Rfam assigns this 113-nucleotide sequence from Corchorus capsularis to the family "mir-172 microRNA precursor family".
On this family, see Park et al., Curr Biol 2002: "CARPEL FACTORY, a Dicer homolog, and HEN1, a novel protein, act in microRNA metabolism in Arabidopsis thaliana".
It scores 73 bits against the family's covariance model.

RNA sequence: UUCAUUGCGAAUGCAGCAUCAUCAGGAUUCCCAGGCCAAAACCAAUAUAUAUCAUAUGCAUCAUAUAUACAUACUUUGCAUGUGAAUCUUGAUGAUGCUACAUCUGCAAACAA
Dot-bracket structure: ..........(((.((((((((((((((((.((...............................................)).)))))))))))))))).)))..........